[Rfam]
Background
The family of this 192-nucleotide RNA sequence from Vibrio vulnificus is "MicX Vibrio cholerae sRNA". The family's consensus secondary structure was predicted with CMfinder. The source organism's lineage runs through Bacteria, Pseudomonadota, Vibrionaceae, Vibrio and Vibrio vulnificus.
RNA sequence: AGGAUAAGAAUAAGAGCGACCGUAUCAGGUCGCUCGUUUUAUUACUUUUUAUUACCCAUUUGGUUUGGCCGCCGAUCUAGUAAUAGAAAGUAUCAUGGCGUUACGCAUAGCUGGCUGUUAGCUUUGUUCCUUACGAUUAUCACUAACAGUGUUUGUAACCAAUUGCCUGAGUUUGUCCUCAGGCUUUUUUGU
Number, nucleotide and partner (000 for none) at each position: 001a000002g000003g000004a000005u000006a000007a000008g000009a000010a000011u000012a000013a000014g035015a034016g033017c032018g031019a030020c029021c028022g000023u000024a000025u000026c000027a000028g021029g020030u019031c018032g017033c016034u015035c014036g000037u000038u000039u000040u000041a000042u000043u092044a091045c090046u000047u000048u000049u088050u085051a084052u083053u082054a081055c080056c000057c000058a000059u000060u075061u074062g073063g072064u071065u000066u000067g000068g000069c000070c000071g064072c063073c062074g061075a060076u000077c000078u000079a000080g055081u054082a053083a052084u051085a050086g000087a000088a049089a000090g045091u044092a043093u000094c000095a000096u000097g000098g000099c000100g159101u158102u157103a156104c155105g154106c000107a000108u000109a000110g000111c000112u000113g000114g150115c149116u148117g147118u146119u145120a144121g143122c000123u000124u000125u000126g000127u000128u000129c000130c000131u000132u000133a000134c000135g000136a000137u000138u000139a000140u000141c000142a000143c121144u120145a119146a118147c117148a116149g115150u114151g000152u000153u000154u105155g104156u103157a102158a101159c100160c000161a000162a000163u000164u000165g184166c183167c182168u181169g180170a179171g178172u000173u000174u000175g000176u000177c000178c171179u170180c169181a168182g167183g166184c165185u000186u000187u000188u000189u000190u000191g000192u000
For this family Rfam cites "RNase E-dependent processing stabilizes MicX, a Vibrio cholerae sRNA" (Davis and Waldor, Mol Microbiol, 2007).